Notes
Shown here is a 78-nucleotide RNA sequence from Mikania micrantha, a member of the family "Small nucleolar RNA snoR53Y". Rfam links the family to the GO terms nucleolus and RNA processing. Taxonomically the source falls in Mikania (Eukaryota, Viridiplantae, Asterales, Heliantheae alliance). A search with the family's covariance model found it, with a score of 47 bits. Its Rfam clan is "snoR53 clan". For this family Rfam cites "Multiple snoRNA gene clusters from Arabidopsis" (Brown et al., RNA, 2001). The family has 7 seed sequences and 513 matches in Rfam 15.1.
RNA sequence: GUUCCCAAUGAUGUAAAAAAAUUUGACCAUGCUAAUUCUGACAUUGAUGAUUUAGUUUUCAUGAUUAAUGAGGGGACA
Dot-bracket structure: (((((...................................................................))))).